[Rfam]
RNA: Actinobacteria sRNA Ms_IGR-5
Organism: Streptomyces sp. ISL-12
RNA sequence: ACACGAGAGAGGAGGUGGUUCGGCAGAUGUAUGGAAACCGGACGCGUGAGGUGGCUGCGGGCUAGCGGCCCGUCACCACACCCAGUGCGGUGCCGGACCAGCGCGUGAGAGAAGCGCGCAGCCGGCCCGAUCUCCAGCAGUCACCCGACCCGCGAGUCGCCGGUACGUCCGGCCGGCUCCUCCACGGAGGAACCCGACUCGCGGGUCGUCUGCG
Dot-bracket structure: ..............(((((..................................))))).((((.((.((.(((........................................))).)).)).))))..................(((((((((((((((((((.......))))))..................)))))))))))))......